[Rfam]
RNA sequence: UCGAGGGUGACCUCGAAUCUGAAGGAAGCUGGAUGUGAGGAAGAUACUAACUCAUGGGCAAAUCUCUGGUCUGACGAACAGAAAUCUCAUAUGAGGUUAUGCAUGAGGAUAAGGCUGCAAUGCAAGUCGAAGUCCAAUAACUACACGGAAUCAUGCAUGAUAAAUGAGGCAGAUGGAUGGAGAGGAAGAAACGUGUG
Numbered sequence: 001u002c003g004a005g006g007g008u009g010a011c012c013u014c015g016a017a018u019c020u021g022a023a024g025g026a027a028g029c030u031g032g033a034u035g036u037g038a039g040g041a042a043g044a045u046a047c048u049a050a051c052u053c054a055u056g057g058g059c060a061a062a063u064c065u066c067u068g069g070u071c072u073g074a075c076g077a078a079c080a081g082a083a084a085u086c087u088c089a090u091a092u093g094a095g096g097u098u099a100u101g102c103a104u105g106a107g108g109a110u111a112a113g114g115c116u117g118c119a120a121u122g123c124a125a126g127u128c129g130a131a132g133u134c135c136a137a138u139a140a141c142u143a144c145a146c147g148g149a150a151u152c153a154u155g156c157a158u159g160a161u162a163a164a165u166g167a168g169g170c171a172g173a174u175g176g177a178u179g180g181a182g183a184g185g186a187a188g189a190a191a192c193g194u195g196u197g
Stems, first nucleotide, its partner, number of pairs: 001016006051197001053195003059188001063183006069174005085169006096161003100157007107135004113128004
RNA: Group II catalytic intron D1-D4-3
Organism: Catonella morbi